[Rfam]
Shown here is a 143-nucleotide RNA sequence from Musa balbisiana, a member of the family "Small nucleolar RNA F1/F2/snoR5a". About the family: This family contains F1, F2 and snoR5a sequences, all of which are members of the the H/ACA class of snoRNA that guide the sites of modification of uridines to pseudouridines. Rfam links the family to the GO terms RNA processing and nucleolus. Rfam classes the family as an H/ACA-box small nucleolar RNA. Lineage of the source: Eukaryota > Viridiplantae > Streptophyta > commelinids > Musa.
RNA sequence: ACAUGCCAUUGGUAUCUGAUGCUCAGUCUUGAUGUCGGUGACUGGGCAUCUCGUUAGAAUGGCAGAGAGGGAAGAACAGGUCUUGCGACACUGGUUGCUCUACUUCUAGUGAGCUUCCUGUUACUUAUACCCUGCUUACAUAC
Numbered sequence: 001a002c003a004u005g006c007c008a009u010u011g012g013u014a015u016c017u018g019a020u021g022c023u024c025a026g027u028c029u030u031g032a033u034g035u036c037g038g039u040g041a042c043u044g045g046g047c048a049u050c051u052c053g054u055u056a057g058a059a060u061g062g063c064a065g066a067g068a069g070g071g072a073a074g075a076a077c078a079g080g081u082c083u084u085g086c087g088a089c090a091c092u093g094g095u096u097g098c099u100c101u102a103c104u105u106c107u108a109g110u111g112a113g114c115u116u117c118c119u120g121u122u123a124c125u126u127a128u129a130c131c132c133u134g135c136u137u138a139c140a141u142a143c
Base pairs, nucleotide, nucleotide: 004064005063006062007061008060009059018050019049020048021047022046023045024044025043026042027041028040032039075136077134078133079132090121091120093118094117097114098113099112